[Rfam]
RNA sequence: CCCCUCCCCGUGCUUACCGCAGGCAGCGCAACACCCACCGCUGACUGCAUAGAAAGGGGAGGAAGAGCAUCAGCCCUGCAUACACCCCAGCCAGGGAGCCUGUGACCUGGGCUGUCUUGUUAGCAGGGAGACACGU
Numbered sequence: 001c002c003c004c005u006c007c008c009c010g011u012g013c014u015u016a017c018c019g020c021a022g023g024c025a026g027c028g029c030a031a032c033a034c035c036c037a038c039c040g041c042u043g044a045c046u047g048c049a050u051a052g053a054a055a056g057g058g059g060a061g062g063a064a065g066a067g068c069a070u071c072a073g074c075c076c077u078g079c080a081u082a083c084a085c086c087c088c089a090g091c092c093a094g095g096g097a098g099c100c101u102g103u104g105a106c107c108u109g110g111g112c113u114g115u116c117u118u119g120u121u122a123g124c125a126g127g128g129a130g131a132c133a134c135g136u
Stems, first nucleotide, its partner, number of pairs: 003062006020047003026041003074128006088114003092110001094108003

Shown here is a 136-nucleotide RNA sequence from Gopherus agassizii, a member of the family "Small nucleolar RNA SNORA51". ACA51 is a member of the H/ACA class of snoRNA that guide the sites of modification of uridines to pseudouridines.